[Rfam]
RNA sequence: GAAUUUUGAUUAACUCUUGAUUUGGAUCAGGAAAUAUGGGAU
Numbered sequence: 001g002a003a004u005u006u007u008g009a010u011u012a013a014c015u016c017u018u019g020a021u022u023u024g025g026a027u028c029a030g031g032a033a034a035u036a037u038g039g040g041a042u
Stems, first nucleotide, its partner, number of pairs: 015032007
The record is a 42-nucleotide RNA from Papaver somniferum, which matches "nuoG RNA" in Rfam. By type it is a cis-regulatory element. The base pairs follow the family's consensus structure, which is taken from published work. Taxonomically the source falls in Papaver (Eukaryota, Euphyllophyta, Magnoliopsida, Ranunculales).